[Rfam]
RNA sequence: GCGAAGUGAUGAUAACAAAUCAUGUCUGUCAAUCCGCUGAUAUAUUUGUGAUGUAUUCAUGUAUCUCGACAGGUUCUGAUCGC
Numbered sequence: 001g002c003g004a005a006g007u008g009a010u011g012a013u014a015a016c017a018a019a020u021c022a023u024g025u026c027u028g029u030c031a032a033u034c035c036g037c038u039g040a041u042a043u044a045u046u047u048g049u050g051a052u053g054u055a056u057u058c059a060u061g062u063a064u065c066u067c068g069a070c071a072g073g074u075u076c077u078g079a080u081c082g083c
Stems, first nucleotide, its partner, number of pairs: 001083004